[Rfam]
RNA: Metazoan signal recognition particle RNA
Organism: Formicarius rufipectus
RNA sequence: GCUGGAACACGGGUGGCACAUGCCUGUAGUCCCAGCUGCUAGGGAUGCUAAGUCCAACGGAUCACUUGAGCCCAGGAGUUCUGGGCUGCAGCACGCUGUGCUGUGUGGGUAUCCAAGCUAAGGCUGCCAUCAAUAUGGCAACCUGCGGGGAGCUGCAGGACACCAGGUUGACUAAGGAGGUGCGAACCGGCCCAGGUCAGAGAUGGAGCAGGUCAAAGCUCCCGUGGCGAUCAGUAGCGGGAUCGCGCCUGUGAACAGCCCCUGCAGCCUAGCCUGGGCAACACAGAGACAUGCAGGCUCCC
Numbered sequence: 001g002c003u004g005g006a007a008c009a010c011g012g013g014u015g016g017c018a019c020a021u022g023c024c025u026g027u028a029g030u031c032c033c034a035g036c037u038g039c040u041a042g043g044g045a046u047g048c049u050a051a052g053u054c055c056a057a058c059g060g061a062u063c064a065c066u067u068g069a070g071c072c073c074a075g076g077a078g079u080u081c082u083g084g085g086c087u088g089c090a091g092c093a094c095g096c097u098g099u100g101c102u103g104u105g106u107g108g109g110u111a112u113c114c115a116a117g118c119u120a121a122g123g124c125u126g127c128c129a130u131c132a133a134u135a136u137g138g139c140a141a142c143c144u145g146c147g148g149g150g151a152g153c154u155g156c157a158g159g160a161c162a163c164c165a166g167g168u169u170g171a172c173u174a175a176g177g178a179g180g181u182g183c184g185a186a187c188c189g190g191c192c193c194a195g196g197u198c199a200g201a202g203a204u205g206g207a208g209c210a211g212g213u214c215a216a217a218g219c220u221c222c223c224g225u226g227g228c229g230a231u232c233a234g235u236a237g238c239g240g241g242a243u244c245g246c247g248c249c250u251g252u253g254a255a256c257a258g259c260c261c262c263u264g265c266a267g268c269c270u271a272g273c274c275u276g277g278g279c280a281a282c283a284c285a286g287a288g289a290c291a292u293g294c295a296g297g298c299u300c301c302c
Stems, first nucleotide, its partner, number of pairs: 001048002004025002008022002011019001030045003051299004062289002065286002070279007081272011095259005101253001105252006112245001113241002117238004122232002125229006131170004136165003142159007172176001179222002182219002189214004197206003